[Rfam]
RNA sequence: ACCUCUUCCUGCCUCUCACUAGCUUCAUCCCUCUCAGCUUGAGCUGCAGCCUGGGAGGGAAGGAGCUAUUGGGGGUCAGGAACAGCA
Numbered sequence: 001a002c003c004u005c006u007u008c009c010u011g012c013c014u015c016u017c018a019c020u021a022g023c024u025u026c027a028u029c030c031c032u033c034u035c036a037g038c039u040u041g042a043g044c045u046g047c048a049g050c051c052u053g054g055g056a057g058g059g060a061a062g063g064a065g066c067u068a069u070u071g072g073g074g075g076u077c078a079g080g081a082a083c084a085g086c087a
Stems, first nucleotide, its partner, number of pairs: 003085002006082006013075002016072003020068007028060008037051001039049002

The family of this 87-nucleotide RNA from Physcomitrium patens is "MIR1219 microRNA precursor family". The family has 4 seed sequences and 6 matches in Rfam 15.1. The family's consensus secondary structure was predicted with RNAalifold.